Shown here is a 105-nucleotide RNA sequence from Oribacterium parvum, a member of the family "S10-Clostridia ribosomal protein leader". A reference for the family is Eckert and Weinberg (2020), "Discovery of 20 novel ribosomal leader candidates in bacteria and archaea", BMC Microbiol.
RNA sequence: UGAUAGCGAUGAAGGAGAAGAUUACUAUAGAAGCGAAAACCGUAAGGCAUAAGUUUCUACAGAGAACUUUCCGGAGCGAAUGUCAAGUUUAGAAACUGACGGCAG
Numbered sequence: 001u002g003a004u005a006g007c008g009a010u011g012a013a014g015g016a017g018a019a020g021a022u023u024a025c026u027a028u029a030g031a032a033g034c035g036a037a038a039a040c041c042g043u044a045a046g047g048c049a050u051a052a053g054u055u056u057c058u059a060c061a062g063a064g065a066a067c068u069u070u071c072c073g074g075a076g077c078g079a080a081u082g083u084c085a086a087g088u089u090u091a092g093a094a095a096c097u098g099a100c101g102g103c104a105g
Base pairs, nucleotide, nucleotide: 014072015071016070018069019068020067025062026061028059029058030057031056032055033054034053081104082103083102084101087100088099089098
The source organism's lineage runs through Bacteria, Bacillati, Clostridia, Oribacterium and Oribacterium parvum.